Overview: A member of the RNA family "Glycine riboswitch aptamer" from Vitreoscilla sp., 114 nucleotides long.
[Rfam]
RNA sequence: GCGCGCUUGUCAGGAGAGAGUCGAAUCCCGCGUGUCGUGCGCUGGUGUCGGCCGCCGAAGGCGCAGGGGCCCGAAAAGCCCCGAACGCUCAGGCAAAAGGACUGACGAGACGCC
Numbered sequence: 001g002c003g004c005g006c007u008u009g010u011c012a013g014g015a016g017a018g019a020g021u022c023g024a025a026u027c028c029c030g031c032g033u034g035u036c037g038u039g040c041g042c043u044g045g046u047g048u049c050g051g052c053c054g055c056c057g058a059a060g061g062c063g064c065a066g067g068g069g070c071c072c073g074a075a076a077a078g079c080c081c082c083g084a085a086c087g088c089u090c091a092g093g094c095a096a097a098a099g100g101a102c103u104g105a106c107g108a109g110a111c112g113c114c
Stems, first nucleotide, its partner, number of pairs: 006109008020052004054094003057090002061088003067082002